[Rfam]
Rfam assigns this 101-nucleotide RNA sequence from Enterovibrio coralii to the family "Translational regulator of tfoXVC".
NCBI's taxonomy places the organism under Bacteria, Pseudomonadota, Gammaproteobacteria, Vibrionales, Enterovibrio.
The base pairs follow the family's consensus structure, which was predicted with WAR.
For this family Rfam cites "Identification of a chitin-induced small RNA that regulates translation of the tfoX gene, encoding a positive regulator of natural competence in Vibrio cholerae" (Yamamoto et al., J Bacteriol, 2011).
RNA sequence: AUUCCAGAUGGUGUGUGGUCCUCCCACACACCUCCGGCAGCAAGCGAAGGUGUCUUUGACGCCCGUGGUAUAGUCCGAUGGCUAUACCACGCUCUUUUUUU
Numbered sequence: 001a002u003u004c005c006a007g008a009u010g011g012u013g014u015g016u017g018g019u020c021c022u023c024c025c026a027c028a029c030a031c032c033u034c035c036g037g038c039a040g041c042a043a044g045c046g047a048a049g050g051u052g053u054c055u056u057u058g059a060c061g062c063c064c065g066u067g068g069u070a071u072a073g074u075c076c077g078a079u080g081g082c083u084a085u086a087c088c089a090c091g092c093u094c095u096u097u098u099u100u101u
Stems, first nucleotide, its partner, number of pairs: 010032009037045002049063006064091012